[Rfam]
RNA sequence: CCACUCUGAAAAGCAGAGGCGUCUCGCGGCGACCUCUCGCCCACGGUGAAAGCCGACCUCGGUCGGUGAAGCUCUCAGGCCCAUGACAGAGGGGGA
Numbered sequence: 001c002c003a004c005u006c007u008g009a010a011a012a013g014c015a016g017a018g019g020c021g022u023c024u025c026g027c028g029g030c031g032a033c034c035u036c037u038c039g040c041c042c043a044c045g046g047u048g049a050a051a052g053c054c055g056a057c058c059u060c061g062g063u064c065g066g067u068g069a070a071g072c073u074c075u076c077a078g079g080c081c082c083a084u085g086a087c088a089g090a091g092g093g094g095g096a
Stems, first nucleotide, its partner, number of pairs: 001094002004091005015037004039080003043075001046074001048072001052067004
RNA: Glycine riboswitch aptamer